Small nucleolar RNA SNORD60: an 86-nucleotide sequence from Astyanax mexicanus. Taxonomically the source falls in Astyanax (Eukaryota, Bilateria, Deuterostomia, Ostariophysi).

RNA sequence: AACCGCUGAUGACUCUCUUAUACUUUUCUGACACCUCGUAUGAGCACUGAGAAUCAGUGCCUGAUUAUAAUUUUAGUCUGAGGUUU
Numbered sequence: 001a002a003c004c005g006c007u008g009a010u011g012a013c014u015c016u017c018u019u020a021u022a023c024u025u026u027u028c029u030g031a032c033a034c035c036u037c038g039u040a041u042g043a044g045c046a047c048u049g050a051g052a053a054u055c056a057g058u059g060c061c062u063g064a065u066u067a068u069a070a071u072u073u074u075a076g077u078c079u080g081a082g083g084u085u086u
Stems, first nucleotide, its partner, number of pairs: 001085004046058005